The record is a 67-nucleotide sequence from Halobacillus halophilus, which matches "Bacillaceae-1 RNA" in Rfam. Lineage of the source: Bacteria > Bacillati > Bacillaceae > Halobacillus > Halobacillus halophilus. A search with the family's covariance model found it, with a score of 58 bits.
[Rfam]
RNA sequence: CGCAGAUGAGGUUCGACUAAGAACGCCACGUCGUGUGGCAACGUCGAACGACCCUGCGACGUGCAGG
Numbered sequence: 001c002g003c004a005g006a007u008g009a010g011g012u013u014c015g016a017c018u019a020a021g022a023a024c025g026c027c028a029c030g031u032c033g034u035g036u037g038g039c040a041a042c043g044u045c046g047a048a049c050g051a052c053c054c055u056g057c058g059a060c061g062u063g064c065a066g067g
Stems, first nucleotide, its partner, number of pairs: 011049007025039005053067005